[Rfam]
RNA: Eukaryotic large subunit ribosomal RNA, nucleotides 2355 to 2947
Organism: Pichia kudriavzevii
RNA sequence: CGGGGAAAGAAGACCCUGUUGAGCUUGACUCUAGUUUGACAUUGUGAAAAGACAUAGAGGGUGUAGCAUAAGUGGGAGCUCCGGCGCCAGUGAAAUACCACUACCUUUAUCGUUUUUUUACUUAUUCAAUGAAGCGGAGCUGGUCUUGACGACCACGUUCUGGAGCGAAGGCGCCUUGUGCGCUGAUCCGGGUUGAAGACAUUGUCAGGUGGGGAGUUUGGCUGGGGCGGCACAUCUGUUAAACGAUAACGCAGAUGUCCUAAGGGGGACUCAUGGAGAACAGAAAUCUCCAGUAGAACAAAAGGGUAAAAGUCCCCUUGAUUUUGAUUUUCAGUGUGAAUACAAACCAUGAAAGUGUGGCCUAUCGAUCCUUUAGUCCCUCGGAAUUUGAGGCUAGAGGUGCCAGAAAAGUUACCACAGGGAUAACUGGCUUGUGGCAGUCAAGCGCUCAUAGCGACAUUGCUUUUUGAUUCUUCGAUGUCGGCUCUUCCUAUCAUACCGAAGCAGAAUUCGGUAAGCGUUGGAUUGUUCACCCACUAAUAGGGAACGUGAGCUGGGUUUAGACCGUCGUGAGACAGGUUAGUUUUACCCUA
Numbered sequence: 001c002g003g004g005g006a007a008a009g010a011a012g013a014c015c016c017u018g019u020u021g022a023g024c025u026u027g028a029c030u031c032u033a034g035u036u037u038g039a040c041a042u043u044g045u046g047a048a049a050a051g052a053c054a055u056a057g058a059g060g061g062u063g064u065a066g067c068a069u070a071a072g073u074g075g076g077a078g079c080u081c082c083g084g085c086g087c088c089a090g091u092g093a094a095a096u097a098c099c100a101c102u103a104c105c106u107u108u109a110u111c112g113u114u115u116u117u118u119u120a121c122u123u124a125u126u127c128a129a130u131g132a133a134g135c136g137g138a139g140c141u142g143g144u145c146u147u148g149a150c151g152a153c154c155a156c157g158u159u160c161u162g163g164a165g166c167g168a169a170g171g172c173g174c175c176u177u178g179u180g181c182g183c184u185g186a187u188c189c190g191g192g193u194u195g196a197a198g199a200c201a202u203u204g205u206c207a208g209g210u211g212g213g214g215a216g217u218u219u220g221g222c223u224g225g226g227g228c229g230g231c232a233c234a235u236c237u238g239u240u241a242a243a244c245g246a247u248a249a250c251g252c253a254g255a256u257g258u259c260c261u262a263a264g265g266g267g268g269a270c271u272c273a274u275g276g277a278g279a280a281c282a283g284a285a286a287u288c289u290c291c292a293g294u295a296g297a298a299c300a301a302a303a304g305g306g307u308a309a310a311a312g313u314c315c316c317c318u319u320g321a322u323u324u325u326g327a328u329u330u331u332c333a334g335u336g337u338g339a340a341u342a343c344a345a346a347c348c349a350u351g352a353a354a355g356u357g358u359g360g361c362c363u364a365u366c367g368a369u370c371c372u373u374u375a376g377u378c379c380c381u382c383g384g385a386a387u388u389u390g391a392g393g394c395u396a397g398a399g400g401u402g403c404c405a406g407a408a409a410a411g412u413u414a415c416c417a418c419a420g421g422g423a424u425a426a427c428u429g430g431c432u433u434g435u436g437g438c439a440g441u442c443a444a445g446c447g448c449u450c451a452u453a454g455c456g457a458c459a460u461u462g463c464u465u466u467u468u469g470a471u472u473c474u475u476c477g478a479u480g481u482c483g484g485c486u487c488u489u490c491c492u493a494u495c496a497u498a499c500c501g502a503a504g505c506a507g508a509a510u511u512c513g514g515u516a517a518g519c520g521u522u523g524g525a526u527u528g529u530u531c532a533c534c535c536a537c538u539a540a541u542a543g544g545g546a547a548c549g550u551g552a553g554c555u556g557g558g559u560u561u562a563g564a565c566c567g568u569c570g571u572g573a574g575a576c577a578g579g580u581u582a583g584u585u586u587u588a589c590c591c592u593a
Stems, first nucleotide, its partner, number of pairs: 003592003007587002015421004020417002022413005028217004035209007044121010054110007071102005078085002125197005135190004142154004170184005220233001221231003234256006259360002265317006271297002274292006298307002322346003327341004348357003371399006379393004430471001432469001434468001436464006445455002482557001483555004487549001488546005495520001498515006522536003526532001563581004567576003